[Rfam]
RNA sequence: UGCGAAGGAACAAAGGCUAAGAGCGCCACGUCCUUAUGUCUUCGCCUUUAUGACCAACAUCCUGUUGG
Numbered sequence: 001u002g003c004g005a006a007g008g009a010a011c012a013a014a015g016g017c018u019a020a021g022a023g024c025g026c027c028a029c030g031u032c033c034u035u036a037u038g039u040c041u042u043c044g045c046c047u048u049u050a051u052g053a054c055c056a057a058c059a060u061c062c063u064g065u066u067g068g
Base pairs, nucleotide, nucleotide: 012049013048014047015046016045017044025040027038028037054068055067056066057065058064
A member of the RNA family "Bacillaceae-1 RNA" from Oceanobacillus piezotolerans, 68 nucleotides long. The source organism's lineage runs through Bacteria, Bacillati, Bacillota, Caryophanales and Oceanobacillus. Rfam classes the family as a small RNA.